[Rfam]
RNA sequence: UGGAAAUGAUGAAAUGGAGGUUAAAAUGUAGAGGGAUGAAUGUGAAUCGAAGAGCAUGAUUGUUUUUUCAGUAUAUGUAAAAAGUAAAUGUGUGUGUGAGUGAAAGAAUGUGUGUGGUGCAUGUGUGUAUUUAGGGCCAAAUAAUGAUGCAAACUGUGGACACUGAAAAGAAUUGCUGAUAUUGGAGUGCAUCUGAGGCACAGUUGCUAAGUCAUAGGGCCUUUGCUGCAACAUUGCCUGUGAUUAAAGCCCAAAAUAUGUUCACAGUUUGUAUCUAUAAAUUGUAAACCUCUGACAUGUUCUUUUAGUCAUAUAAAUGAAUAUGUAAUCUGAUCCAA
Numbered sequence: 001u002g003g004a005a006a007u008g009a010u011g012a013a014a015u016g017g018a019g020g021u022u023a024a025a026a027u028g029u030a031g032a033g034g035g036a037u038g039a040a041u042g043u044g045a046a047u048c049g050a051a052g053a054g055c056a057u058g059a060u061u062g063u064u065u066u067u068u069c070a071g072u073a074u075a076u077g078u079a080a081a082a083a084g085u086a087a088a089u090g091u092g093u094g095u096g097u098g099a100g101u102g103a104a105a106g107a108a109u110g111u112g113u114g115u116g117g118u119g120c121a122u123g124u125g126u127g128u129a130u131u132u133a134g135g136g137c138c139a140a141a142u143a144a145u146g147a148u149g150c151a152a153a154c155u156g157u158g159g160a161c162a163c164u165g166a167a168a169a170g171a172a173u174u175g176c177u178g179a180u181a182u183u184g185g186a187g188u189g190c191a192u193c194u195g196a197g198g199c200a201c202a203g204u205u206g207c208u209a210a211g212u213c214a215u216a217g218g219g220c221c222u223u224u225g226c227u228g229c230a231a232c233a234u235u236g237c238c239u240g241u242g243a244u245u246a247a248a249g250c251c252c253a254a255a256a257u258a259u260g261u262u263c264a265c266a267g268u269u270u271g272u273a274u275c276u277a278u279a280a281a282u283u284g285u286a287a288a289c290c291u292c293u294g295a296c297a298u299g300u301u302c303u304u305u306u307a308g309u310c311a312u313a314u315a316a317a318u319g320a321a322u323a324u325g326u327a328a329u330c331u332g333a334u335c336c337a338a
Stems, first nucleotide, its partner, number of pairs: 001337004203232005209222001211220003
Description: This 338-nucleotide RNA sequence from Ophiophagus hannah belongs to the Rfam family "Small Cajal body-specific RNA 7". A search with the family's covariance model found it, with a score of 138 bits. For this family Rfam cites "Cajal body-specific small nuclear RNAs: a novel class of 2'-O-methylation and pseudouridylation guide RNAs" (Darzacq et al., EMBO J, 2002). The family has 18 seed sequences and 570 matches in Rfam 15.1.